Overview:
This 147-nucleotide RNA sequence from Vibrio metschnikovii belongs to the Rfam family "DABA-DC-AT RNA". The family's RNA type in Rfam is cis-regulatory element.
[Rfam]
RNA sequence: UCAAUCUCGGACUGCGUUUUCUGGGGGAUACGCGUGGUGAACAUUCAAGCUGAUUGCGGCACCACGUAGGGUAGGUAUCAGCAAACCUUUUGCUGAUAGACGGGAUACUCUUGCUGUGGAAACAGCAUGUGAAUGGGAAACCCAACA
Numbered sequence: 001u002c003a004a005u006c007u008c009g010g011a012c013u014g015c016g017u018u019u020u021c022u023g024g025g026g027g028a029u030a031c032g033c034g035u036g037g038u039g040a041a042c043a044u045u046c047a048a049g050c051u052g053a054u055u056g057c058g059g060c061a062c063c064a065c066g067u068a069g070g071g072u073a074g075g076u077a078u079c080a081g082c083a084a085a086c087c088u089u090u091u092g093c094u095g096a097u098a099g100a101c102g103g104g105a106u107a108c109u110c111u112u113g114c115u116g117u118g119g120a121a122a123c124a125g126c127a128u129g130u131g132a133a134u135g136g137g138a139a140a141c142c143c144a145a146c147a
Stems, first nucleotide, its partner, number of pairs: 006025006032067008042056002076098010112127006
Dot-bracket structure: .....((((((........))))))......((((((((..((...........))...))))))))........((((((((((...)))))))))).............((((((....))))))....................